[Rfam]
RNA sequence: UAGUAGGUAGGACUGGGGUGCUAGCCGUGCCCUAUUCUGAAACCGGCUAUACGCAGAGGUCAGCAACUGCUGGGUAAAUCUCUAGAAUGGUGAUUCCCACUUGGUGUGCGGAAAUGAAAUCACGCCGAGGCGGGUGGUUGUAGGACUGGAAUUAUCCGAAGGGAUAAUUUCUAAGACCGAACGAUUGAAAGGGAUCAGGUCCGGGAGGGAGCAGUCCUAAGGUCGAACAUUCACGCUUCCUCGUCAACGUGGCGGAUCUUGUAUGCCUUGAAAUGGGGCUAUCGAUCUAGUCUGGAACCAGCAGGUCUACUA
Numbered sequence: 001u002a003g004u005a006g007g008u009a010g011g012a013c014u015g016g017g018g019u020g021c022u023a024g025c026c027g028u029g030c031c032c033u034a035u036u037c038u039g040a041a042a043c044c045g046g047c048u049a050u051a052c053g054c055a056g057a058g059g060u061c062a063g064c065a066a067c068u069g070c071u072g073g074g075u076a077a078a079u080c081u082c083u084a085g086a087a088u089g090g091u092g093a094u095u096c097c098c099a100c101u102u103g104g105u106g107u108g109c110g111g112a113a114a115u116g117a118a119a120u121c122a123c124g125c126c127g128a129g130g131c132g133g134g135u136g137g138u139u140g141u142a143g144g145a146c147u148g149g150a151a152u153u154a155u156c157c158g159a160a161g162g163g164a165u166a167a168u169u170u171c172u173a174a175g176a177c178c179g180a181a182c183g184a185u186u187g188a189a190a191g192g193g194a195u196c197a198g199g200u201c202c203g204g205g206a207g208g209g210a211g212c213a214g215u216c217c218u219a220a221g222g223u224c225g226a227a228c229a230u231u232c233a234c235g236c237u238u239c240c241u242c243g244u245c246a247a248c249g250u251g252g253c254g255g256a257u258c259u260u261g262u263a264u265g266c267c268u269u270g271a272a273a274u275g276g277g278g279c280u281a282u283c284g285a286u287c288u289a290g291u292c293u294g295g296a297a298c299c300a301g302c303a304g305g306u307c308u309a310c311u312a
Stems, first nucleotide, its partner, number of pairs: 001312008011061004015033007036057004067304007075296001078293001082290003088285001090283001093280001095278005100270001103267009113257001115255001120252005126243005132237002134234004139229003143178002146175002148171010182225005191218005200209003
Rfam assigns this 312-nucleotide sequence from Marine Group I thaumarchaeote to the family "Archaeal signal recognition particle RNA". A reference for the family is Rosenblad et al. (2003), "SRPDB: Signal Recognition Particle Database", Nucleic Acids Res. A search with the family's covariance model found it, with a score of 110 bits. Gene Ontology terms of the family: SRP-dependent cotranslational protein targeting to membrane, signal sequence recognition and signal recognition particle, plasma membrane targeting. The base pairs follow the family's consensus structure, which is taken from published work. The source organism's lineage runs through Archaea, Thermoproteati, Nitrososphaerota and Marine Group I.